[Rfam]
RNA sequence: CCCUAGCCCUGAUAGCAGCGACAUCCUUUUUCUGCUUUUUUUGGCAGAAAAAGAUAUAGCGAAUAGCAGGAAAUAGC
Numbered sequence: 001c002c003c004u005a006g007c008c009c010u011g012a013u014a015g016c017a018g019c020g021a022c023a024u025c026c027u028u029u030u031u032c033u034g035c036u037u038u039u040u041u042u043g044g045c046a047g048a049a050a051a052a053g054a055u056a057u058a059g060c061g062a063a064u065a066g067c068a069g070g071a072a073a074u075a076g077c
Stems, first nucleotide, its partner, number of pairs: 009069003013065002018060002023055003029050008

Rfam assigns this 77-nucleotide RNA from Flavobacterium sp. 123 to the family "Flavo-1 RNA". The source organism's lineage runs through Bacteria, Bacteroidota, Flavobacteriia, Flavobacteriaceae and Flavobacterium. The match comes from Rfam's covariance-model search (77 bits). The family has 201 seed sequences and 7,497 matches in Rfam 15.1.